[Rfam]
RNA sequence: CUCGCGCUGAACCCGACACAACAUUCUGCAGAAAUGUUGUGCGACCUGCCGUGUCGGUUCAGCCUGAG
Number, nucleotide and partner (000 for none) at each position: 001c068002u067003c066004g065005c000006g063007c062008u000009g060010a059011a058012c057013c056014c000015g000016a000017c000018a000019c000020a038021a037022c036023a035024u034025u033026c000027u000028g000029c000030a000031g000032a000033a025034a024035u023036g022037u021038u020039g000040u000041g000042c000043g055044a054045c053046c000047u000048g000049c000050c000051g000052u000053g045054u044055c043056g013057g012058u011059u010060c009061a000062g007063c006064c000065u004066g003067a002068g001
Rfam assigns this 68-nucleotide sequence from Dissoconium aciculare to the family "bZIP non canonical Hac1/Xbp1 intron". The family's RNA type in Rfam is small RNA. Rfam 15.1 lists 1,325 matches to the family in 1,320 species. The match comes from Rfam's covariance-model search (50 bits). Rfam's curators write: bZIP intron RNA is a non-canonical intron that was first reported in HAC1 gene in yeast and XBP1 gene in Metazoa. The organism belongs to Dissoconium aciculare, within Eukaryota.